Rfam assigns this 161-nucleotide RNA sequence from Lactuca saligna to the family "U1 spliceosomal RNA". The match comes from Rfam's covariance-model search (128 bits). Rfam describes the family as follows. U1 is a small nuclear RNA (snRNA) component of the spliceosome (involved in pre-mRNA splicing). Its 5' end forms complementary base pairs with the 5' splice junction, thus defining the 5' donor site of an intron. Rfam links the family to the GO terms U1 snRNP, mRNA 5'-splice site recognition and pre-mRNA 5'-splice site binding. For this family Rfam cites "Crystal structure at 1.92 A resolution of the RNA-binding domain of the U1A spliceosomal protein complexed with an RNA hairpin" (Oubridge et al., Nature, 1994). Taxonomically the source falls in Lactuca (Eukaryota, Magnoliopsida, Pentapetalae, Lactucinae). The family's consensus secondary structure is taken from published work.

RNA sequence: AUACUUACCUGGAUGGGGUCAAUGGUUGGUCAAGAUGGAUCAUGGUCUAGAGUAGUGACUUUCAUUGCACUUUGAAGGGGUGCUGCUUUAAGGUCGGCCCAAGUGGUUGAGCCUACAUCAUAAUUUGUGUCAGUGGGGGUUUGCGUUCGCGCAGCCCUGCC
Dot-bracket structure: ...........((((((((((.(((((..........)))))))))))((((..(((.(((((..........)).))).)))..)))).((((((.((.....)).))).))).))))...............(.(((..((((....))))..))).).